Purine riboswitch aptamer: a 99-nucleotide RNA sequence from Paenibacillus thalictri.
Nucleotides: 099
Stems, first nucleotide, its partner, number of pairs: 019084001021082005029048004033043001057075006
Number, partner (000 for none) and nucleotide at each position: 001000u002000a003000u004000u005000g006000a007000u008000c009000c010000u011000u012000a013000u014000u015000u016000u017000c018000a019084a020000u021082u022081c023080g024079u025078a026000u027000a028000u029048c030047c031046c032045c033043g034000u035000g036000a037000u038000a039000a040000g041000g042000u043033c044000u045032g046031g047030g048029g049000g050000u051000u052000u053000c054000u055000a056000c057075c058074a059073g060072g061071a062070g063000c064000c065000g066000u067000a068000a069000a070062u071061u072060c073059c074058u075057g076000a077000c078025u079024a080023c081022g082021a083000u084019u085000g086000g087000g088000u089000g090000c091000c092000g093000a094000a095000g096000u097000g098000u099000a
The base pairs follow the family's consensus structure, which is taken from published work.